RNA: Small nucleolar RNA psi18S-1377
Organism: Zophobas morio
RNA sequence: UCGUCUCUGUGUUACUUGAAUAACAAAUUUCCAUUUGUAUUUGAGCGUCAAAAGAGACGUACAUUGAUUUCUUGUUUUUCCGCAAGUCUGCUGAUUUUGAGGCUAGACUUACUAUAAACGAGAGACAAAU
Number, nucleotide and partner (000 for none) at each position: 001u000002c059003g058004u057005c056006u055007c054008u000009g000010u050011g049012u000013u000014a000015c000016u044017u043018g042019a041020a040021u039022a038023a000024c000025a000026a000027a000028u000029u000030u000031c000032c000033a000034u000035u000036u000037g000038u022039a021040u020041u019042u018043g017044a016045g000046c000047g000048u000049c011050a010051a000052a000053a000054g007055a006056g005057a004058c003059g002060u000061a000062c000063a000064u000065u000066g000067a000068u000069u000070u000071c000072u000073u000074g000075u000076u000077u000078u000079u000080c000081c000082g000083c000084a110085a109086g108087u107088c106089u000090g000091c102092u101093g000094a000095u000096u000097u000098u000099g000100a000101g092102g091103c000104u000105a000106g088107a087108c086109u085110u084111a000112c000113u000114a000115u000116a000117a000118a000119c000120g000121a000122g000123a000124g000125a000126c000127a000128a000129a000130u000